[Rfam]
RNA sequence: CUCCUCACCUCGGGGUGCUCCAAACCGGAGCUGAGAUGCGCAUAUGCGCGAACCCGUUGAACCUGAACCGGUUAACACCGGCGGAGGGAAGGUCGAGCAACUCGCA
Number, nucleotide and partner (000 for none) at each position: 001c000002u000003c000004c000005u000006c000007a093008c092009c091010u090011c056012g055013g054014g053015g000016u050017g031018c030019u029020c028021c027022a000023a000024a000025c000026c000027g021028g020029a019030g018031c017032u000033g000034a000035g000036a000037u000038g049039c048040g047041c046042a000043u000044a000045u000046g041047c040048g039049c038050g016051a000052a000053c014054c013055c012056g011057u000058u000059g000060a000061a000062c087063c086064u085065g000066a000067a000068c081069c080070g079071g078072u000073u000074a000075a000076c000077a000078c071079c070080g069081g068082c000083g000084g000085a064086g063087g062088g000089a000090a010091g009092g008093u007094c000095g000096a000097g000098c000099a000100a000101c000102u000103c000104g000105c000106a000